[Rfam]
RNA sequence: UGGCGAUGAGGAAAACCUUCGUGCCGGAGUCGGUGGAUCCUCGGAUCUCCGUCGUUGAUGGUGACACAACCCUCUAAGAAGUUCUGAGCCG
Numbered sequence: 001u002g003g004c005g006a007u008g009a010g011g012a013a014a015a016c017c018u019u020c021g022u023g024c025c026g027g028a029g030u031c032g033g034u035g036g037a038u039c040c041u042c043g044g045a046u047c048u049c050c051g052u053c054g055u056u057g058a059u060g061g062u063g064a065c066a067c068a069a070c071c072c073u074c075u076a077a078g079a080a081g082u083u084c085u086g087a088g089c090c091g
Base pairs, nucleotide, nucleotide: 001091002090003089004088

The record is a 91-nucleotide sequence from Spirodela intermedia, which matches "Small nucleolar RNA U61" in Rfam. For this family Rfam cites "Plant snoRNA database" (Brown et al., Nucleic Acids Res, 2003). Gene Ontology terms of the family: nucleolus and RNA processing. It is annotated as a C/D-box small nucleolar RNA.